This 129-nucleotide RNA sequence from Microcebus murinus belongs to the Rfam family "Small nucleolar RNA SNORA72". Taxonomically the source falls in Microcebus (Eukaryota, Bilateria, Teleostomi, Eutheria). About the family: U72 is a member of the H/ACA class of snoRNAs. The snoRNA gene is located in intron 4 of the ribosomal L30 protein gene in human, mouse and chicken. A search with the family's covariance model found it, with a score of 133 bits.
RNA sequence: CUGCGAAUUUUCUCGCUGUUUUGAUUUUGUAAUCAGUACAGGCUAAACAUUCACUAUAUUAAAACCAUGCAUGUGUCCCCACACCUAGUUCUUUCCCUAGGUUUGGUUUUAUAAAUGCUUGUGAUAAAC
Numbered sequence: 001c002u003g004c005g006a007a008u009u010u011u012c013u014c015g016c017u018g019u020u021u022u023g024a025u026u027u028u029g030u031a032a033u034c035a036g037u038a039c040a041g042g043c044u045a046a047a048c049a050u051u052c053a054c055u056a057u058a059u060u061a062a063a064a065c066c067a068u069g070c071a072u073g074u075g076u077c078c079c080c081a082c083a084c085c086u087a088g089u090u091c092u093u094u095c096c097c098u099a100g101g102u103u104u105g106g107u108u109u110u111a112u113a114a115a116u117g118c119u120u121g122u123g124a125u126a127a128a129c
Stems, first nucleotide, its partner, number of pairs: 003054001005052001016041004021036006064122002067119001069118002079106003083102006